[Rfam]
RNA sequence: UUAAAGACUAUGAAGAGAAGAGUAUAUACGGAAUGUAGUUAUAGCGAACUGGGGAUGGUGUAAGCUCAGUACGAAGUCCAUAUAGAAGAACAUCUCAGAGUCACUAACCGAAAUGCUAUUGCAAAGUAGACUUAGUCGGAUCCAUGCCGUUACAUUAUGGACACUGUAUUUGCAGUGAUCGAGCGGAGAUUUUCUCAACUUGGGUGGUACCACGGAAGUUACCUUUCGUCCCAUAA
Numbered sequence: 001u002u003a004a005a006g007a008c009u010a011u012g013a014a015g016a017g018a019a020g021a022g023u024a025u026a027u028a029c030g031g032a033a034u035g036u037a038g039u040u041a042u043a044g045c046g047a048a049c050u051g052g053g054g055a056u057g058g059u060g061u062a063a064g065c066u067c068a069g070u071a072c073g074a075a076g077u078c079c080a081u082a083u084a085g086a087a088g089a090a091c092a093u094c095u096c097a098g099a100g101u102c103a104c105u106a107a108c109c110g111a112a113a114u115g116c117u118a119u120u121g122c123a124a125a126g127u128a129g130a131c132u133u134a135g136u137c138g139g140a141u142c143c144a145u146g147c148c149g150u151u152a153c154a155u156u157a158u159g160g161a162c163a164c165u166g167u168a169u170u171u172g173c174a175g176u177g178a179u180c181g182a183g184c185g186g187a188g189a190u191u192u193u194c195u196c197a198a199c200u201u202g203g204g205u206g207g208u209a210c211c212a213c214g215g216a217a218g219u220u221a222c223c224u225u226u227c228g229u230c231c232c233a234u235a236a
Base pairs, nucleotide, nucleotide: 007101008100015096016095017094018093025084026083027082028081030079038072039071048070049069050068051067052066053065104135105134106133107132137149138148139147186196187195188194189193201233202232203231204230212229213228214227215226216225

This 236-nucleotide RNA sequence from Hathewaya histolytica belongs to the Rfam family "T-box leader". The base pairs follow the family's consensus structure, which is taken from published work. The match comes from Rfam's covariance-model search (111 bits). The source organism's lineage runs through Bacteria, Bacillati, Eubacteriales, Clostridiaceae and Hathewaya.